RNA sequence: CGGCCGGGACGACCCGGCCCAGGAUCAGGGGCAAGUCCGGGACGACCUGG
Numbered sequence: 001c002g003g004c005c006g007g008g009a010c011g012a013c014c015c016g017g018c019c020c021a022g023g024a025u026c027a028g029g030g031g032c033a034a035g036u037c038c039g040g041g042a043c044g045a046c047c048u049g050g
Base pairs, nucleotide, nucleotide: 002019003018004017005016006015007014008013037050038049039048040047041046
Shown here is a 50-nucleotide sequence from Zavarzinia aquatilis, a member of the family "Guanidine-II riboswitch aptamer (mini-ykkC)".
Pairs were carried over by alignment from the consensus structure, which is taken from published work.
NCBI's taxonomy places the organism under Bacteria, Pseudomonadota, Alphaproteobacteria, Rhodospirillales, Zavarzinia.